[Rfam]
RNA sequence: GGGAGCAGAUAGGUGCCGGUGUGCCUCCUGGUCUUCAAAACCAGUGUGGGGCGCUAAUCCCGUCCCGGAUGGGUUCGAUUCCCAUAUGUUCCC
Number, nucleotide and partner (000 for none) at each position: 001g093002g092003g091004a090005g089006c088007a087008g000009a085010u000011a026012g025013g024014u023015g022016c021017c000018g000019g000020u000021g016022u015023g014024c013025c012026u011027c000028c044029u043030g042031g041032u040033c000034u000035u000036c000037a000038a000039a000040a032041c031042c030043a029044g028045u000046g000047u067048g066049g065050g064051g063052c000053g000054c000055u000056a000057a000058u000059c000060c000061c000062g000063u051064c050065c049066c048067g047068g000069a000070u084071g083072g082073g081074u000075u000076c000077g000078a000079u000080u000081c073082c072083c071084a070085u009086a000087u007088g006089u005090u004091c003092c002093c001
Source information: This 93-nucleotide sequence from Ruminococcus sp. AF31-8BH belongs to the Rfam family "Selenocysteine transfer RNA". Its family is annotated with triplet codon-amino acid adaptor activity in the Gene Ontology.